Notes
Shown here is a 92-nucleotide RNA from Vibrio cholerae, a member of the family "c-di-GMP-I-GGC riboswitch aptamer".
Nucleotides: 092
Base pairs, nucleotide, nucleotide: 004091006088007087014039015038019034020033021032022031023030024029037077042084043083044082045081047080048079049078050075051074052073053072054071
Number, partner (000 for none) and nucleotide at each position: 001000g002000g003000u004091c005000a006088c007087g008000c009000a010000c011000a012000g013000g014039g015038c016000a017000a018000a019034c020033c021032a022031u023030u024029c025000g026000a027000a028000a029024g030023a031022g032021u033020g034019g035000g036000a037077c038015g039014c040000a041000a042084a043083g044082c045081c046000u047080c048079c049078g050075g051074c052073c053072u054071a055000a056000a057000c058000c059000a060000u061000u062000g063000c064000a065000c066000u067000c068000c069000g070000g071054u072053a073052g074051g075050u076000a077037g078049c079048g080047g081045g082044g083043u084042u085000a086000c087007c088006g089000a090000u091004g092000g